[Rfam]
RNA: FMN riboswitch aptamer (RFN element)
RNA sequence: AGCGAUCUUCAGGGCAGGGUGAAAUUCCCGAUCGGCGGUAUAGUCCGCGAGCCGCGCAGCGGCAGGAUUUGGUGUGAUUCCAAAACCGACAGUAUAGUCUGGAUGGAAGAAGAUGGAU
Numbered sequence: 001a002g003c004g005a006u007c008u009u010c011a012g013g014g015c016a017g018g019g020u021g022a023a024a025u026u027c028c029c030g031a032u033c034g035g036c037g038g039u040a041u042a043g044u045c046c047g048c049g050a051g052c053c054g055c056g057c058a059g060c061g062g063c064a065g066g067a068u069u070u071g072g073u074g075u076g077a078u079u080c081c082a083a084a085a086c087c088g089a090c091a092g093u094a095u096a097g098u099c100u101g102g103a104u105g106g107a108a109g110a111a112g113a114u115g116g117a118u
Base pairs, nucleotide, nucleotide: 003116005114006113007112008111009110010109017029018028019027031098032097033088034087035048036047037046038045043086044085053062068084069083070082071081072080090101091100092099